[Rfam]
RNA: FMN riboswitch aptamer (RFN element)
RNA sequence: CUUAUCCUUCGGGGCGGGGCGCAAUUCCCCACCGACGGUGAUCGGCAGCACUUCGGCCAUCGAUCGCAUCGAAGCCGAUUUCGCCGCCGUCAGUCCGUGACCCGUCAUCGCUUCUUCCGGUUGAUCCGGCGGACGCUUUGCGGUGGACCUGGUGAGAAUCCGGGACCGACAGUAACAGUCUGGAUGGGAGAAGGAAGCA
Numbered sequence: 001c002u003u004a005u006c007c008u009u010c011g012g013g014g015c016g017g018g019g020c021g022c023a024a025u026u027c028c029c030c031a032c033c034g035a036c037g038g039u040g041a042u043c044g045g046c047a048g049c050a051c052u053u054c055g056g057c058c059a060u061c062g063a064u065c066g067c068a069u070c071g072a073a074g075c076c077g078a079u080u081u082c083g084c085c086g087c088c089g090u091c092a093g094u095c096c097g098u099g100a101c102c103c104g105u106c107a108u109c110g111c112u113u114c115u116u117c118c119g120g121u122u123g124a125u126c127c128g129g130c131g132g133a134c135g136c137u138u139u140g141c142g143g144u145g146g147a148c149c150u151g152g153u154g155a156g157a158a159u160c161c162g163g164g165a166c167c168g169a170c171a172g173u174a175a176c177a178g179u180c181u182g183g184a185u186g187g188g189a190g191a192a193g194g195a196a197g198c199a
Stems, first nucleotide, its partner, number of pairs: 003197001005195006017029003031179002033168002035098004102143004148164005170182003